[Rfam]
RNA sequence: CGGUAUGGUAGAGGCGCGAGACGCAAUAGUACUUACAAGGAGCUGGCUGUGAUGAAAUGUGAGGAAAGGGCGAAUUGCCGAAGUGACGGGGAAUGCUAAUUCCCGGCGCUGGGGCCGUAUUCAAUAGGUACGGCACUGUCAUCUUCGGAUGGUGAGCUAUCGCACUA
Numbered sequence: 001c002g003g004u005a006u007g008g009u010a011g012a013g014g015c016g017c018g019a020g021a022c023g024c025a026a027u028a029g030u031a032c033u034u035a036c037a038a039g040g041a042g043c044u045g046g047c048u049g050u051g052a053u054g055a056a057a058u059g060u061g062a063g064g065a066a067a068g069g070g071c072g073a074a075u076u077g078c079c080g081a082a083g084u085g086a087c088g089g090g091g092a093a094u095g096c097u098a099a100u101u102c103c104c105g106g107c108g109c110u111g112g113g114g115c116c117g118u119a120u121u122c123a124a125u126a127g128g129u130a131c132g133g134c135a136c137u138g139u140c141a142u143c144u145u146c147g148g149a150u151g152g153u154g155a156g157c158u159a160u161c162g163c164a165c166u167a
Base pairs, nucleotide, nucleotide: 006162007161008160009159010158011157016078017077018076019075022072023071024070032063033062034061035060036059037058082110083109084108085107087105088104089103090102091101092100111137112136114134115133116132117131118130119129120128121127139152140151141150142149143148

Rfam assigns this 167-nucleotide sequence from Sporomusa malonica to the family "Lysine riboswitch aptamer".
The organism belongs to Sporomusa, within Bacteria.